[Rfam]
RNA sequence: GGUUCGAUGCCACGUCGGCGGUAGCAAAACCUGCUUUGACCGGCGAUGCUAUGAUCGGACCAAUAUGAAGCUUACGCGUUUCGCAUCUUAUAGGAACCUGUGAACUGAUAAAUUUCUGUUCAUUCACAGUGCCGUUUAGUGCGAUUACAUUU
Numbered sequence: 001g002g003u004u005c006g007a008u009g010c011c012a013c014g015u016c017g018g019c020g021g022u023a024g025c026a027a028a029a030c031c032u033g034c035u036u037u038g039a040c041c042g043g044c045g046a047u048g049c050u051a052u053g054a055u056c057g058g059a060c061c062a063a064u065a066u067g068a069a070g071c072u073u074a075c076g077c078g079u080u081u082c083g084c085a086u087c088u089u090a091u092a093g094g095a096a097c098c099u100g101u102g103a104a105c106u107g108a109u110a111a112a113u114u115u116c117u118g119u120u121c122a123u124u125c126a127c128a129g130u131g132c133c134g135u136u137u138a139g140u141g142c143g144a145u146u147a148c149a150u151u152u
Base pairs, nucleotide, nucleotide: 002060003059004058005057006056007055008054009052013048014047015046016045017044020041021040022039024034025033026032081144082143083142084141085140093133094132098129099128100127102125103124104123106122107121